[Rfam]
The family of this 137-nucleotide RNA sequence from Jaculus jaculus is "Small nucleolar RNA SNORA72". It is annotated as an H/ACA-box small nucleolar RNA. Rfam 15.1 lists 1,541 matches to the family in 547 species. Rfam's curators write: U72 is a member of the H/ACA class of snoRNAs. The snoRNA gene is located in intron 4 of the ribosomal L30 protein gene in human, mouse and chicken. For this family Rfam cites "The family of box ACA small nucleolar RNAs is defined by an evolutionarily conserved secondary structure and ubiquitous sequence elements essential for RNA accumulation" (Ganot et al., Genes Dev, 1997). Its family is annotated with nucleolus and RNA processing in the Gene Ontology. The match comes from Rfam's covariance-model search (139 bits). Pairs were carried over by alignment from the consensus structure, which was predicted with PFOLD.

RNA sequence: UUGUAAAUAUUCUCACUGUUCUGAUUUUGUGAUAAUCUGGACAGGCUAAACAUUUGCUAUAUUAAGACCUUGCAUGUGUCCCCAGACCUAGGUCUUUUCUUUCCCUAGGUCUGGUUUUAUCAUUGCUGGUGAUAACC
Numbered sequence: 001u002u003g004u005a006a007a008u009a010u011u012c013u014c015a016c017u018g019u020u021c022u023g024a025u026u027u028u029g030u031g032a033u034a035a036u037c038u039g040g041a042c043a044g045g046c047u048a049a050a051c052a053u054u055u056g057c058u059a060u061a062u063u064a065a066g067a068c069c070u071u072g073c074a075u076g077u078g079u080c081c082c083c084a085g086a087c088c089u090a091g092g093u094c095u096u097u098u099c100u101u102u103c104c105c106u107a108g109g110u111c112u113g114g115u116u117u118u119a120u121c122a123u124u125g126c127u128g129g130u131g132a133u134a135a136c137c
Stems, first nucleotide, its partner, number of pairs: 003057003016044006023037004067130003072126002082114010